Source information: c-di-GMP-I riboswitch aptamer: an 89-nucleotide RNA sequence from Piscibacillus halophilus. Its family is annotated with cyclic-di-GMP binding in the Gene Ontology. A search with the family's covariance model found it, with a score of 71 bits. NCBI's taxonomy places the organism under Bacteria, Bacillati, Bacilli, Caryophanales, Piscibacillus.
RNA sequence: UUUUAGAAAAGGCAAACCUUUUGAAAGGGAGGGACGUAAAACCAGUGGUCUAAGGGGUUAAUGACGCCUAAGAUAGCACGGUUGCCUCU
Numbered sequence: 001u002u003u004u005a006g007a008a009a010a011g012g013c014a015a016a017c018c019u020u021u022u023g024a025a026a027g028g029g030a031g032g033g034a035c036g037u038a039a040a041a042c043c044a045g046u047g048g049u050c051u052a053a054g055g056g057g058u059u060a061a062u063g064a065c066g067c068c069u070a071a072g073a074u075a076g077c078a079c080g081g082u083u084g085c086c087u088c089u
Base pairs, nucleotide, nucleotide: 012037013036017032018031019030020029021028022027040083041082042081043080045079046078047077048074049073050072055068056067